[Rfam]
RNA sequence: GGAAGAUCCUCGUCCCCGGUGGGACGGCCGGACUUCAAAUCCGGUUGGGGCCGCCAGCGGCCCUAGGCAGGUUCGACUCCUGUGAUCUUCC
Numbered sequence: 001g002g003a004a005g006a007u008c009c010u011c012g013u014c015c016c017c018g019g020u021g022g023g024a025c026g027g028c029c030g031g032a033c034u035u036c037a038a039a040u041c042c043g044g045u046u047g048g049g050g051c052c053g054c055c056a057g058c059g060g061c062c063c064u065a066g067g068c069a070g071g072u073u074c075g076a077c078u079c080c081u082g083u084g085a086u087c088u089u090c091c
Stems, first nucleotide, its partner, number of pairs: 001091008011026006027045006047064005068082004
This 91-nucleotide RNA sequence from Serratia symbiotica belongs to the Rfam family "Selenocysteine transfer RNA". Pairs were carried over by alignment from the consensus structure, which is taken from published work. The source organism's lineage runs through Bacteria, Pseudomonadati, Yersiniaceae, Serratia and Serratia symbiotica. Gene Ontology term of the family: triplet codon-amino acid adaptor activity.